The record is a 131-nucleotide RNA sequence, which matches "Small nucleolar RNA SNORD14" in Rfam.
It is one of the family's seed sequences.
U14 small nucleolar RNA (U14 snoRNA) is required for early cleavages of eukaryotic precursor rRNAs. In yeasts, this molecule possess a stem-loop region (known as the Y-domain) which is essential for function. A similar structure, but with a different consensus sequence, is found in plants, but is absent in vertebrates.
By type it is a C/D-box small nucleolar RNA.

RNA sequence: UGCAUGGCAAAUGAUGCUAAAAGCAAGGCUUGUUUCUCAUAACAUUCGCAGUUGCCGCCUAAGAGCUUUCGCCUUGCCAGGUUUGAGAGCUAAUGCUGCUAAUUCCUUCCUUGGAUGUCUGAUGCAAUGCA
Number, nucleotide and partner (000 for none) at each position: 001u000002g000003c000004a000005u000006g000007g125008c124009a123010a000011a000012u000013g000014a000015u000016g000017c000018u000019a000020a000021a000022a000023g000024c000025a000026a000027g000028g000029c000030u000031u000032g000033u000034u000035u000036c000037u000038c000039a000040u000041a000042a000043c000044a000045u000046u000047c000048g000049c000050a000051g000052u000053u000054g000055c000056c000057g000058c000059c000060u000061a000062a000063g000064a000065g090066c089067u088068u087069u086070c085071g000072c000073c000074u000075u000076g000077c000078c000079a000080g000081g000082u000083u000084u000085g070086a069087g068088a067089g066090c065091u000092a000093a000094u000095g000096c000097u000098g000099c000100u000101a000102a000103u000104u000105c000106c000107u000108u000109c000110c000111u000112u000113g000114g000115a000116u000117g000118u000119c000120u000121g000122a000123u009124g008125c007126a000127a000128u000129g000130c000131a000